[Rfam]
Rfam assigns this 240-nucleotide RNA from Pseudomonas sp. M47T1 to the family "Nitrogen regulated small RNA". Rfam links the family to the GO term bacterial-type flagellum-dependent swarming motility. NCBI's taxonomy places the organism under Bacteria, Pseudomonadati, Gammaproteobacteria, Pseudomonadales, Pseudomonas. About the family: Found in the opportunistic pathogen Pseudomonas aeruginosa PAO1. Its transcription is induced during nitrogen limitation by the NtrB/C two-component system (an important regulator of nitrogen assimilation and swarming motility) together with the alternative sigma factor RpoN (a global regulator involved in nitrogen metabolism). By activating rhlA (a gene essential for rhamnolipids synthesis) it positively regulates the production of rhamnolipid surfactants needed for swarming motility.

RNA sequence: CUCCCAGUUUUGGGGUCCUUGGUACAGGCAGGCCGGGGAAUCCCUAUUUUACACCGGGACGCGCAGCACUCGACGAGGGUUGCGGUUCCACACCCGUUUUGGGGACCUUGGUACAGGCAGGCCGGGGAUUCCCCUUCUUUACAACGGGGCGCGCAACACGCGACGAGCGCUGCGCCCCCCUCCCGCUUUUGGGGACCUUGGUACAGGCAGGCCGGGGAUUCCCUCUUUUAUUCCUCCCGG
Numbered sequence: 001c002u003c004c005c006a007g008u009u010u011u012g013g014g015g016u017c018c019u020u021g022g023u024a025c026a027g028g029c030a031g032g033c034c035g036g037g038g039a040a041u042c043c044c045u046a047u048u049u050u051a052c053a054c055c056g057g058g059a060c061g062c063g064c065a066g067c068a069c070u071c072g073a074c075g076a077g078g079g080u081u082g083c084g085g086u087u088c089c090a091c092a093c094c095c096g097u098u099u100u101g102g103g104g105a106c107c108u109u110g111g112u113a114c115a116g117g118c119a120g121g122c123c124g125g126g127g128a129u130u131c132c133c134c135u136u137c138u139u140u141a142c143a144a145c146g147g148g149g150c151g152c153g154c155a156a157c158a159c160g161c162g163a164c165g166a167g168c169g170c171u172g173c174g175c176c177c178c179c180c181u182c183c184c185g186c187u188u189u190u191g192g193g194g195a196c197c198u199u200g201g202u203a204c205a206g207g208c209a210g211g212c213c214g215g216g217g218a219u220u221c222c223c224u225c226u227u228u229u230a231u232u233c234c235u236c237c238c239g240g
Stems, first nucleotide, its partner, number of pairs: 012044005017038007057089003101134005107126006147181003151177001154174001191224005197216006